A member of the RNA family "transfer-messenger RNA" from Virgibacillus salexigens, 340 nucleotides long.
RNA sequence: UACGGAUUCGACAGGGAUAGAUUGAGCUCAGGUUGCACGUCGAGGUUACGGCUCGUAAAACGUUAUGCCUAAAUAUAACUGGCAAAGAAAACAAUCAACCUGCUUUAGCAGCUGCGUAAGCUCUGCUAAGCGAUCCUUCCUGCUAUUGCCCGUGUAGCAGAUUGAAGGGUCUCAAAUGAAACGGGCUAUACAAUCAUUCGCCGUCUGAGGAUGGUUGUUGAAACGAAUCAGACUAGCUUCUCUAAAGCCCGUCGGUAGGCUGCAGAGUAAGUAAAUGAUAAUAUACCGAAUAAGCGUGUAGAAGCCUGAGUGGCGAUAUCUCUGGACGUGGGUUCGAUUA
Numbered sequence: 001u002a003c004g005g006a007u008u009c010g011a012c013a014g015g016g017a018u019a020g021a022u023u024g025a026g027c028u029c030a031g032g033u034u035g036c037a038c039g040u041c042g043a044g045g046u047u048a049c050g051g052c053u054c055g056u057a058a059a060a061c062g063u064u065a066u067g068c069c070u071a072a073a074u075a076u077a078a079c080u081g082g083c084a085a086a087g088a089a090a091a092c093a094a095u096c097a098a099c100c101u102g103c104u105u106u107a108g109c110a111g112c113u114g115c116g117u118a119a120g121c122u123c124u125g126c127u128a129a130g131c132g133a134u135c136c137u138u139c140c141u142g143c144u145a146u147u148g149c150c151c152g153u154g155u156a157g158c159a160g161a162u163u164g165a166a167g168g169g170u171c172u173c174a175a176a177u178g179a180a181a182c183g184g185g186c187u188a189u190a191c192a193a194u195c196a197u198u199c200g201c202c203g204u205c206u207g208a209g210g211a212u213g214g215u216u217g218u219u220g221a222a223a224c225g226a227a228u229c230a231g232a233c234u235a236g237c238u239u240c241u242c243u244a245a246a247g248c249c250c251g252u253c254g255g256u257a258g259g260c261u262g263c264a265g266a267g268u269a270a271g272u273a274a275a276u277g278a279u280a281a282u283a284u285a286c287c288g289a290a291u292a293a294g295c296g297u298g299u300a301g302a303a304g305c306c307u308g309a310g311u312g313g314c315g316a317u318a319u320c321u322c323u324g325g326a327c328g329u330g331g332g333u334u335c336g337a338u339u340a
Base pairs, nucleotide, nucleotide: 012324013323014322015321016320017319018318019317026311027310028309029308030307031306032305033304034303036298037297038296039295040294041055042054043053044052046065048063049062050061105129106128107127108126109125110124111123132171133170134169135168136167137166140160141159142158143157144156145155146154148186149185150184151183152182153181190218191217192216193215194214195213196212197211203233204232205231206230207229236272237271238270239269240267241266242265243264247260248259249258252289253288254287255284256283257282
A search with the family's covariance model found it, with a score of 157 bits. Pairs were carried over by alignment from the consensus structure, which is taken from published work. From the family's description: Bacterial tmRNA, also known as 10Sa RNA or SsrA, is named for its dual tRNA and mRNA-like properties. The organism belongs to Virgibacillus, within Bacteria.